[Rfam]
RNA: Bacterial RNase P class A
RNA sequence: UGGGUCGGCCGGACGGUCGCGUCGCGAGCGGUUCGCCGCCUCGCGCCGAGGAACGUCCGGGCUCCGCAGGGCAGGGCGGUGGGUAACACCCACCCGGAGCGAUCCGCGAGACAGUGCCACAGAGAACAGACCGCCGGGAUCCGUCCCGGUAAGGGUGAAACGGCGGUGUAAGAGACCACCGGGGGCCAUGGCGACAUGGCCCGCCAGGUAAACCUCGCCCGGAGCAAGGUCAGACAGAGGAUGAUGACGCGGCCCGCCGAGUCCUCGGGUAGACCGCUGGAGCGGCACGGCAACGUGUCGCCGAGAGAGAUGGCCGUCGAUGGGGCGCGAGCCCCGGAACAGAACCCGGCGUACAGGCCGGCCCAUUCG
Numbered sequence: 001u002g003g004g005u006c007g008g009c010c011g012g013a014c015g016g017u018c019g020c021g022u023c024g025c026g027a028g029c030g031g032u033u034c035g036c037c038g039c040c041u042c043g044c045g046c047c048g049a050g051g052a053a054c055g056u057c058c059g060g061g062c063u064c065c066g067c068a069g070g071g072c073a074g075g076g077c078g079g080u081g082g083g084u085a086a087c088a089c090c091c092a093c094c095c096g097g098a099g100c101g102a103u104c105c106g107c108g109a110g111a112c113a114g115u116g117c118c119a120c121a122g123a124g125a126a127c128a129g130a131c132c133g134c135c136g137g138g139a140u141c142c143g144u145c146c147c148g149g150u151a152a153g154g155g156u157g158a159a160a161c162g163g164c165g166g167u168g169u170a171a172g173a174g175a176c177c178a179c180c181g182g183g184g185g186c187c188a189u190g191g192c193g194a195c196a197u198g199g200c201c202c203g204c205c206a207g208g209u210a211a212a213c214c215u216c217g218c219c220c221g222g223a224g225c226a227a228g229g230u231c232a233g234a235c236a237g238a239g240g241a242u243g244a245u246g247a248c249g250c251g252g253c254c255c256g257c258c259g260a261g262u263c264c265u266c267g268g269g270u271a272g273a274c275c276g277c278u279g280g281a282g283c284g285g286c287a288c289g290g291c292a293a294c295g296u297g298u299c300g301c302c303g304a305g306a307g308a309g310a311u312g313g314c315c316g317u318c319g320a321u322g323g324g325g326c327g328c329g330a331g332c333c334c335c336g337g338a339a340c341a342g343a344a345c346c347c348g349g350c351g352u353a354c355a356g357g358c359c360g361g362c363c364c365a366u367u368c369g
Stems, first nucleotide, its partner, number of pairs: 001365010011354001012318007020048002023045006053352003057349005062224004069255004074220005079093005094108001095106004109215002114213002116209003131154002133150007162180002165177003182204001183202008228275004237266006249257002282301008